[Rfam]
The record is a 76-nucleotide RNA from Chenopodium quinoa, which matches "Small nucleolar RNA Z155" in Rfam.
RNA sequence: UAUUGAAGUGAUGAAAUUUGUAUCGGAAUAUAAAUGUGUCGACUAAAACUACAGACUACAAUUAUCUGAUUCAAUC
Numbered sequence: 001u002a003u004u005g006a007a008g009u010g011a012u013g014a015a016a017u018u019u020g021u022a023u024c025g026g027a028a029u030a031u032a033a034a035u036g037u038g039u040c041g042a043c044u045a046a047a048a049c050u051a052c053a054g055a056c057u058a059c060a061a062u063u064a065u066c067u068g069a070u071u072c073a074a075u076c
Base pairs, nucleotide, nucleotide: 002075003074004073005072006071
The pairing is the family consensus, mapped onto this sequence. The family's RNA type in Rfam is C/D-box small nucleolar RNA. For this family Rfam cites "The high diversity of snoRNAs in plants: identification and comparative study of 120 snoRNA genes from Oryza sativa" (Chen et al., Nucleic Acids Res, 2003). The match comes from Rfam's covariance-model search (45 bits). NCBI's taxonomy places the organism under Eukaryota, Viridiplantae, Gunneridae, Caryophyllales, Chenopodium.